Overview:
Group II catalytic intron D1-D4-6: a 234-nucleotide sequence from Chthoniobacter flavus. The pairing is the family consensus, mapped onto this sequence. Rfam links the family to the GO term Group II intron splicing. On this family, see Bonen and Vogel, Trends Genet 2001: "The ins and outs of group II introns". Rfam describes the family as follows. Group II introns are found in rRNA, tRNA and mRNA of organelles in fungi, plants and protists, and also in mRNA in bacteria. Taxonomically the source falls in Chthoniobacter flavus (Bacteria, Pseudomonadati, Spartobacteria, Chthoniobacter).
RNA sequence: AAAGUGUUCGUCAAGCCAACUGAACAUCGAGCUUGUAGAGAAGCGGACGAUUCUGGGAGCAAUCCUGGGGUUGAAGCUCCGUGGAUCGAACCUGUGAGCCGCAGCGCAAGCAAACCUAGAAGAGCCUCGUUACGCUUAGUGAGGUCGGCCAAUCUCUCGGAGGAGCCGAAGCCUAGCAUUCACCGUGAAGGGAUGUUCACGAGCAACGGUGAAGACCUCCGGGGUCGCAGGGGG
Numbered sequence: 001a002a003a004g005u006g007u008u009c010g011u012c013a014a015g016c017c018a019a020c021u022g023a024a025c026a027u028c029g030a031g032c033u034u035g036u037a038g039a040g041a042a043g044c045g046g047a048c049g050a051u052u053c054u055g056g057g058a059g060c061a062a063u064c065c066u067g068g069g070g071u072u073g074a075a076g077c078u079c080c081g082u083g084g085a086u087c088g089a090a091c092c093u094g095u096g097a098g099c100c101g102c103a104g105c106g107c108a109a110g111c112a113a114a115c116c117u118a119g120a121a122g123a124g125c126c127u128c129g130u131u132a133c134g135c136u137u138a139g140u141g142a143g144g145u146c147g148g149c150c151a152a153u154c155u156c157u158c159g160g161a162g163g164a165g166c167c168g169a170a171g172c173c174u175a176g177c178a179u180u181c182a183c184c185g186u187g188a189a190g191g192g193a194u195g196u197u198c199a200c201g202a203g204c205a206a207c208g209g210u211g212a213a214g215a216c217c218u219c220c221g222g223g224g225u226c227g228c229a230g231g232g233g234g
Stems, first nucleotide, its partner, number of pairs: 012035005020029001021202001038087002043082003046078001048073011122226001124225006141219006147173003154165002179213008